[Rfam]
RNA sequence: GCGGACAUCUUUACCUGACAGUAUUAGAAAUCAGGCUCAAUCUAAUGCUGUCUGGUAAGAUGUUGAC
Numbered sequence: 001g002c003g004g005a006c007a008u009c010u011u012u013a014c015c016u017g018a019c020a021g022u023a024u025u026a027g028a029a030a031u032c033a034g035g036c037u038c039a040a041u042c043u044a045a046u047g048c049u050g051u052c053u054g055g056u057a058a059g060a061u062g063u064u065g066a067c
Stems, first nucleotide, its partner, number of pairs: 004064006011058005017052012
Dot-bracket structure: ...((((((.(((((.((((((((((((............)))))))))))).)))))))))))...